Source information: A member of the RNA family "mir-3492 microRNA precursor family" from Schistosoma bovis, 76 nucleotides long. Pairs were carried over by alignment from the consensus structure, which was predicted with RNAalifold. It scores 66 bits against the family's covariance model.
[Rfam]
RNA sequence: AGCCUUCUGUAUCCGUGCUGAGAUUUCGUCACACACCAUACCACAAGGGCUGAUGAGACUUCCAAGAUAAGAUGUU
Dot-bracket structure: .....(.(.((((..((..(((.(((((((.....................)))))))))).)).)))).)..)..